[Rfam]
RNA sequence: ACGCUUCGCGCAUGCCUGCCGACCGAUGUCGGUGACAUGCCAGGCAACCUCCGGUCUUCGAGGUUGCGCGCAGCCAUUAGCUGCGUGACCGGACCAGUUCGCACCGCAUCCCUCGUGCGAACGACCACCGGCUUGCCCGGUGGUGGAUGC
Numbered sequence: 001a002c003g004c005u006u007c008g009c010g011c012a013u014g015c016c017u018g019c020c021g022a023c024c025g026a027u028g029u030c031g032g033u034g035a036c037a038u039g040c041c042a043g044g045c046a047a048c049c050u051c052c053g054g055u056c057u058u059c060g061a062g063g064u065u066g067c068g069c070g071c072a073g074c075c076a077u078u079a080g081c082u083g084c085g086u087g088a089c090c091g092g093a094c095c096a097g098u099u100c101g102c103a104c105c106g107c108a109u110c111c112c113u114c115g116u117g118c119g120a121a122c123g124a125c126c127a128c129c130g131g132c133u134u135g136c137c138c139g140g141u142g143g144u145g146g147a148u149g150c
Stems, first nucleotide, its partner, number of pairs: 011039004015034001018033006044067006053090004068086006117150003124144008
RNA: radC RNA